[Rfam]
The family of this 93-nucleotide RNA sequence from Desulfatitalea alkaliphila is "c-di-GMP-I riboswitch aptamer". Rfam's curators write: GEMM was predicted in a large-scale screen for bacterial structured RNA regulatory elements. The match comes from Rfam's covariance-model search (79 bits). NCBI's taxonomy places the organism under Bacteria, Desulfobacteria, Desulfobacterales, Desulfosarcinaceae, Desulfatitalea.
RNA sequence: UGCCCGAAACGGCAAACCACCCGAAAGGGUGGGACGCAAAGCCACCGGCCUAAAUCUUCCUUAGCCGGAAGACAUGGCGGCAGGGCUACCGAA
Numbered sequence: 001u002g003c004c005c006g007a008a009a010c011g012g013c014a015a016a017c018c019a020c021c022c023g024a025a026a027g028g029g030u031g032g033g034a035c036g037c038a039a040a041g042c043c044a045c046c047g048g049c050c051u052a053a054a055u056c057u058u059c060c061u062u063a064g065c066c067g068g069a070a071g072a073c074a075u076g077g078c079g080g081c082a083g084g085g086c087u088a089c090c091g092a093a
Stems, first nucleotide, its partner, number of pairs: 012037002017032006040087004045083001047081001048078003055072006